[Rfam]
RNA: SAM-I/IV (S-adenosyl methionine) riboswitch aptamer
RNA sequence: UUAUAACAUCAAGACAAGGGCCGACGCCCUGACCAACCUGCCCCCCGGGCAAGGUGGACGCGAAAGCGGAUGUGGCCUAAAGUUUAGGCAACCAAGCGGGAGUA
Numbered sequence: 001u002u003a004u005a006a007c008a009u010c011a012a013g014a015c016a017a018g019g020g021c022c023g024a025c026g027c028c029c030u031g032a033c034c035a036a037c038c039u040g041c042c043c044c045c046c047g048g049g050c051a052a053g054g055u056g057g058a059c060g061c062g063a064a065a066g067c068g069g070a071u072g073u074g075g076c077c078u079a080a081a082g083u084u085u086a087g088g089c090a091a092c093c094a095a096g097c098g099g100g101a102g103u104a
Stems, first nucleotide, its partner, number of pairs: 006073005015031001017030005033057002037054003040050003045100002075089004
Dot-bracket structure: .....(((((....(.(((((....)))))).((..((((((..[[.))).))).))...........))))).((((.......)))).........]]....